[Rfam]
RNA sequence: GGCGGUCUUCGGUAGUGGCUGCCGGAGCCCCGCGAAAGGGGCGGCUCCGACCGCUUCGAUCGACGGCCGUC
Number, nucleotide and partner (000 for none) at each position: 001g071002g070003c069004g068005g067006u066007c065008u000009u063010c062011g061012g060013u059014a000015g000016u000017g055018g054019c053020u000021g051022c000023c049024g048025g047026a046027g045028c044029c043030c000031c000032g000033c000034g000035a000036a000037a000038g000039g000040g000041g000042c000043g029044g028045c027046u026047c025048c024049g023050a000051c021052c000053g019054c018055u017056u000057c000058g000059a013060u012061c011062g010063a009064c000065g007066g006067c005068c004069g003070u002071c001
This 71-nucleotide RNA sequence from Mycobacterium sp. Root135 belongs to the Rfam family "Actino-pnp RNA". It is annotated as a cis-regulatory element. Pairs were carried over by alignment from the consensus structure, which is taken from published work.